This 75-nucleotide RNA sequence from Sphingomonas sp. SKA58 belongs to the Rfam family "Makes More Granules Regulator RNA (mmgR)". It is one of the family's seed sequences. Pairs were carried over by alignment from the consensus structure. Gene Ontology terms of the family: response to nitrogen compound, protein binding and DNA-templated transcription, termination.
RNA sequence: CAAAGGUGCCUUUCAGGCAUCCUCUCCUAAAAACUUUCGGGCUGGUCAUUCGACCGGCCCUUUUUUUUGCGGCAC
Number, nucleotide and partner (000 for none) at each position: 001c000002a000003a000004a000005g000006g000007u000008g018009c017010c016011u015012u000013u000014c000015a011016g010017g009018c008019a000020u000021c000022c000023u000024c000025u000026c000027c000028u000029a000030a000031a000032a000033a000034c000035u000036u000037u000038c000039g060040g059041g058042c057043u056044g055045g054046u053047c052048a000049u000050u000051c000052g047053a046054c045055c044056g043057g042058c041059c040060c039061u000062u000063u000064u000065u000066u000067u000068u000069g000070c000071g000072g000073c000074a000075c000